[Rfam]
Rfam assigns this 121-nucleotide sequence from Fenollaria massiliensis to the family "STnc490 Hfq binding RNA".
RNA sequence: AACCCCCAGUUAGACUGGGGGUUCAGUUUAGCUUUAGCGGUGAUAAACAAACAAAAAACCUCCCUAUUUGAUAUAAUAUAAUUGUAAUCUGUCAAUUGCAAUAUAAAAUCAAAUAAGGGAG
Number, nucleotide and partner (000 for none) at each position: 001a023002a022003c021004c020005c019006c018007c017008a016009g015010u014011u000012a000013g000014a010015c009016u008017g007018g006019g005020g004021g003022u002023u001024c000025a000026g000027u000028u000029u040030a000031g038032c037033u000034u000035u000036a000037g032038c031039g000040g029041u000042g000043a000044u000045a000046a000047a000048c000049a000050a000051a000052c000053a000054a000055a000056a000057a000058a000059c000060c121061u120062c119063c118064c117065u000066a000067u116068u115069u111070g110071a109072u108073a000074u000075a000076a000077u105078a104079u000080a000081a102082u101083u100084g099085u098086a097087a096088u095089c000090u000091g000092u000093c000094a000095a088096u087097u086098g085099c084100a083101a082102u081103a000104u078105a077106a000107a000108a072109u071110c070111a069112a000113a000114u000115a068116a067117g064118g063119g062120a061121g060

Pairs were carried over by alignment from the consensus structure, which was predicted with WAR. It is annotated as a small RNA.